[Rfam]
RNA sequence: AAACAGCCCCCUAUGUUUUGAUUCUUUGGCAGUUUUGGACCCCCAAUGCAUUGUAGAUUCAGACAAUUGACGACGUGGCACCUCACUUAGAGGUGCCACGUCAGCGUUGACCGAGUCAACAAUGGACUGGGGGUCCAAAACUGCCAAAGAAUCAAAACAUAGGGGGCUGUUU
Numbered sequence: 001a002a003a004c005a006g007c008c009c010c011c012u013a014u015g016u017u018u019u020g021a022u023u024c025u026u027u028g029g030c031a032g033u034u035u036u037g038g039a040c041c042c043c044c045a046a047u048g049c050a051u052u053g054u055a056g057a058u059u060c061a062g063a064c065a066a067u068u069g070a071c072g073a074c075g076u077g078g079c080a081c082c083u084c085a086c087u088u089a090g091a092g093g094u095g096c097c098a099c100g101u102c103a104g105c106g107u108u109g110a111c112c113g114a115g116u117c118a119a120c121a122a123u124g125g126a127c128u129g130g131g132g133g134u135c136c137a138a139a140a141c142u143g144c145c146a147a148a149g150a151a152u153c154a155a156a157a158c159a160u161a162g163g164g165g166g167c168u169g170u171u172u
Stems, first nucleotide, its partner, number of pairs: 001172002004169005012161034073101002076098007